[Rfam]
RNA sequence: GUGCCAGUGUAGCUCAGUGGUUACUUCUGAAUGCUCUCGGUUCCAAUCUCUCAGUCUGUGGACUGAAGUUCAAACCCAUGGCUGCUGUCUGGUGUUUUU
Numbered sequence: 001g002u003g004c005c006a007g008u009g010u011a012g013c014u015c016a017g018u019g020g021u022u023a024c025u026u027c028u029g030a031a032u033g034c035u036c037u038c039g040g041u042u043c044c045a046a047u048c049u050c051u052c053a054g055u056c057u058g059u060g061g062a063c064u065g066a067a068g069u070u071c072a073a074a075c076c077c078a079u080g081g082c083u084g085c086u087g088u089c090u091g092g093u094g095u096u097u098u099u
Stems, first nucleotide, its partner, number of pairs: 002094006012083001014081002017079004025067003029063001